[Rfam]
RNA sequence: GAAGUAUCAGCAACGCCAUACAGGUGGGGUUGCCAAACCGCUCUACGCUGCAAAAGCUGCAAAGCUGCUGUAGUGAACGGAUAGAGAAAAGGUGGAAGAAAAUCCAUCAGGU
Numbered sequence: 001g002a003a004g005u006a007u008c009a010g011c012a013a014c015g016c017c018a019u020a021c022a023g024g025u026g027g028g029g030u031u032g033c034c035a036a037a038c039c040g041c042u043c044u045a046c047g048c049u050g051c052a053a054a055a056g057c058u059g060c061a062a063a064g065c066u067g068c069u070g071u072a073g074u075g076a077a078c079g080g081a082u083a084g085a086g087a088a089a090a091g092g093u094g095g096a097a098g099a100a101a102a103u104c105c106a107u108c109a110g111g112u
Stems, first nucleotide, its partner, number of pairs: 001008002010033005016027004039111001041086005046080001047074002050071003055066003091108006

The family of this 112-nucleotide RNA sequence from Candidatus Kuenenia stuttgartensis is "Group II catalytic intron D1-D4-2". Group II introns are found in rRNA, tRNA and mRNA of organelles in fungi, plants and protists, and also in mRNA in bacteria. Rfam's curators put it in the seed alignment. On this family, see Bonen and Vogel, Trends Genet 2001: "The ins and outs of group II introns". Pairs were carried over by alignment from the consensus structure. The source organism's lineage runs through Bacteria, Pseudomonadati, Planctomycetota, Candidatus Brocadiales and Candidatus Kuenenia. Rfam 15.1 lists 1,231 matches to the family in 625 species.